[Rfam]
A member of the RNA family "Small nucleolar RNA SNORD58" from Geotrypetes seraphini, 66 nucleotides long. It scores 75 bits against the family's covariance model. The base pairs follow the family's consensus structure, which was predicted with PFOLD. snoRNA U58 is found in introns 1, 3 and 6 of the ribosomal protein RPL17 gene in humans. A reference for the family is Galardi et al. (2002), "Purified box C/D snoRNPs are able to reproduce site-specific 2'-O-methylation of target RNA in vitro", Mol Cell Biol.
RNA sequence: CCGCAGUGAUGACUUGCUUAGGACACCUUUGGAUUAAUCAUGAAAACAAAUUGAAUUCUGAGUGGC
Numbered sequence: 001c002c003g004c005a006g007u008g009a010u011g012a013c014u015u016g017c018u019u020a021g022g023a024c025a026c027c028u029u030u031g032g033a034u035u036a037a038u039c040a041u042g043a044a045a046a047c048a049a050a051u052u053g054a055a056u057u058c059u060g061a062g063u064g065g066c
Stems, first nucleotide, its partner, number of pairs: 001065004
Dot-bracket structure: ((((.........................................................)))).